[Rfam]
Rfam assigns this 152-nucleotide RNA sequence from Paenibacillus sp. yr247 to the family "c-di-AMP riboswitch aptamer (ydaO/yuaA leader)". From the family's description: This family represents a conserved RNA structure found upstream of the ydaO and yuaA genes in Bacillus subtilis and related genes in other bacteria. Gene Ontology terms of the family: cyclic-di-AMP binding and regulation of gene expression. It scores 88 bits against the family's covariance model. NCBI's taxonomy places the organism under Bacteria, Bacillati, Bacillota, Bacilli, Paenibacillus.
RNA sequence: UACAUAAUUUCGCUUAAUUUUCUUCUAAGAAAAGCGGGGGAACCACAAGUUUCAUGGGGUGAGUAAUGGUACAACGGUUUGGUACCUUUAGGGCAGAUUUCUCGCGGCCCGAACCCGACAGCUAACCUCGUAAGCGUCGUGAGAAAGGAGAA
Numbered sequence: 001u002a003c004a005u006a007a008u009u010u011c012g013c014u015u016a017a018u019u020u021u022c023u024u025c026u027a028a029g030a031a032a033a034g035c036g037g038g039g040g041a042a043c044c045a046c047a048a049g050u051u052u053c054a055u056g057g058g059g060u061g062a063g064u065a066a067u068g069g070u071a072c073a074a075c076g077g078u079u080u081g082g083u084a085c086c087u088u089u090a091g092g093g094c095a096g097a098u099u100u101c102u103c104g105c106g107g108c109c110c111g112a113a114c115c116c117g118a119c120a121g122c123u124a125a126c127c128u129c130g131u132a133a134g135c136g137u138c139g140u141g142a143g144a145a146a147g148g149a150g151a152a
Stems, first nucleotide, its partner, number of pairs: 011136004018033006034131006044056002057116003065088002068085001091110004